[Rfam]
RNA: sul1 RNA
RNA sequence: UUGGAGCCCGGUGAAAAUCCGGGUGGCUACUCCGGCCGCCGAUCCGCCGGACAACA
Numbered sequence: 001u002u003g004g005a006g007c008c009c010g011g012u013g014a015a016a017a018u019c020c021g022g023g024u025g026g027c028u029a030c031u032c033c034g035g036c037c038g039c040c041g042a043u044c045c046g047c048c049g050g051a052c053a054a055c056a
Stems, first nucleotide, its partner, number of pairs: 006024006012017001031051006